Rfam assigns this 113-nucleotide RNA from Dorea sp. CAG:105 to the family "Glycine riboswitch aptamer".

RNA sequence: UGAUGUUUUCCAAGAGAGAGUUGAACGGAUCAGCCGCCGAAGAGGCAAGCCGGACAUACAUGGUGGGUAUGCAAAAAGGUGAAACUUUCAGGCAAAAGGACUGGAAAAUGUAC
Numbered sequence: 001u002g003a004u005g006u007u008u009u010c011c012a013a014g015a016g017a018g019a020g021u022u023g024a025a026c027g028g029a030u031c032a033g034c035c036g037c038c039g040a041a042g043a044g045g046c047a048a049g050c051c052g053g054a055c056a057u058a059c060a061u062g063g064u065g066g067g068u069a070u071g072c073a074a075a076a077a078g079g080u081g082a083a084a085c086u087u088u089c090a091g092g093c094a095a096a097a098g099g100a101c102u103g104g105a106a107a108a109u110g111u112a113c
Stems, first nucleotide, its partner, number of pairs: 006108007020034004036093003039089002043087003049080002
Dot-bracket structure: .....(((((((.......((((.......)))).(((((..(((...((............................))....))))).)))........))))))).....
NCBI's taxonomy places the organism under Bacteria, Bacillati, Clostridia, Lachnospirales, Dorea.